[Rfam]
RNA sequence: GGCCUUAAGCUCCACUUGUCUUAUAUAAACUUACAAUAAGGGUAAGUGUCUCUACCGACUGCCGUAAACAGCCGACUAUAAGAUCCAGCAAUCGCAUA
Dot-bracket structure: .................((((((((...((((((.......))))))........((.(((.......))).))..))))))))..............